[Rfam]
RNA sequence: GGAGUAAUCUCAAAUUGUAACAGUGGGUUUUUUCAACGGCAAAGCACAAACUUUGAAACGUCCCUCCGUUCGAGAGAACAUUUGCUAUACCCACGUUACAGAUUGGGGUUUCCCC
Numbered sequence: 001g002g003a004g005u006a007a008u009c010u011c012a013a014a015u016u017g018u019a020a021c022a023g024u025g026g027g028u029u030u031u032u033u034c035a036a037c038g039g040c041a042a043a044g045c046a047c048a049a050a051c052u053u054u055g056a057a058a059c060g061u062c063c064c065u066c067c068g069u070u071c072g073a074g075a076g077a078a079c080a081u082u083u084g085c086u087a088u089a090c091c092c093a094c095g096u097u098a099c100a101g102a103u104u105g106g107g108g109u110u111u112c113c114c115c
Stems, first nucleotide, its partner, number of pairs: 001115002004112001006110008015101007023094006038086006
Description
The record is a 115-nucleotide sequence from Culex quinquefasciatus, which matches "mir-1889 microRNA precursor family" in Rfam. Lineage of the source: Eukaryota > Mandibulata > Allotriocarida > Eumetabola > Culex pipiens complex. The base pairs follow the family's consensus structure, which was predicted with RNAalifold.